Rfam assigns this 121-nucleotide RNA from Halalkalibacter nanhaiisediminis to the family "epsC RNA". Rfam classes the family as a cis-regulatory element.
RNA sequence: CGGUUAUGUCUCCUACCCGGUAUUGUUGGAGGCACUCGAUAAUCCUGUGGGUGGAAUGAAAUCAUUCCACCUUAGGCGCUGUGUUGCCAGUGGGAUGAUGUGAGGGGAGGUUAAAUGCCUC
Numbered sequence: 001c002g003g004u005u006a007u008g009u010c011u012c013c014u015a016c017c018c019g020g021u022a023u024u025g026u027u028g029g030a031g032g033c034a035c036u037c038g039a040u041a042a043u044c045c046u047g048u049g050g051g052u053g054g055a056a057u058g059a060a061a062u063c064a065u066u067c068c069a070c071c072u073u074a075g076g077c078g079c080u081g082u083g084u085u086g087c088c089a090g091u092g093g094g095a096u097g098a099u100g101u102g103a104g105g106g107g108a109g110g111u112u113a114a115a116u117g118c119c120u121c
Base pairs, nucleotide, nucleotide: 001019002018003017007034008033009032010031011030012029013028035104036103037102038101039099040098042096043095044094045093046092049072050071051070052069053068054067055066056065057064058063075088076087077086078085107121108120109119110118111117